[Rfam]
RNA: TPP riboswitch aptamer (THI element)
Organism: Paenibacillus lutimineralis
RNA sequence: GAAAUCCACUAGGGGAGUCGUGAUAACGACUGAGACAAGAUAAAUCUUGGACCCUUUGAACCUGAUCUAGUUAGCACUAGCGUAGGAAAGUGGAGUCGGACUGAA
Dot-bracket structure: .....(((((((((..(((((....)))))......((((....))))...)))).....((((..((((......))))..))))..)))))............